A member of the RNA family "Guanidine-II riboswitch aptamer (mini-ykkC)" from Amycolatopsis acidicola, 53 nucleotides long. Lineage of the source: Bacteria > Bacillati > Actinomycetota > Pseudonocardiaceae > Amycolatopsis. From the family's description: Simpler in structure and has fewer highly conserved nucleotide positions than the ykkC-yxkD leader.
[Rfam]
RNA sequence: AGUCGAGGACGACCUCGGCCCCGUUGCCGCCGGUCAGGUCGAGGACGGCCUCG
Number, nucleotide and partner (000 for none) at each position: 001a000002g019003u018004c017005g016006a015007g014008g013009a000010c000011g000012a000013c008014c007015u006016c005017g004018g003019c002020c000021c000022c000023g000024u000025u000026g000027c000028c000029g000030c000031c000032g000033g000034u000035c000036a000037g000038g000039u000040c053041g052042a051043g050044g049045a000046c000047g000048g000049c044050c043051u042052c041053g040